[Rfam]
RNA sequence: CCAUGCAUGAAUUUCAUGCACCAGGCCUCUAGUAUAUAUAUACACACACAUACUAGAGGCCCAGUGCAUGAAUUCAUGCAUGGGU
Numbered sequence: 001c002c003a004u005g006c007a008u009g010a011a012u013u014u015c016a017u018g019c020a021c022c023a024g025g026c027c028u029c030u031a032g033u034a035u036a037u038a039u040a041u042a043c044a045c046a047c048a049c050a051u052a053c054u055a056g057a058g059g060c061c062c063a064g065u066g067c068a069u070g071a072a073u074u075c076a077u078g079c080a081u082g083g084g085u
Base pairs, nucleotide, nucleotide: 001083002082004080005079006078007077008076009075010074011073013072014071015070017068018067019066020065021064024061025060026059027058028057029056030055031054032053033052034051035050

Shown here is an 85-nucleotide sequence from Cnephaeus nilssonii, a member of the family "mir-9243 microRNA precursor family". Gene Ontology terms of the family: RISC complex and miRNA-mediated post-transcriptional gene silencing. Pairs were carried over by alignment from the consensus structure, which was predicted with RNAalifold.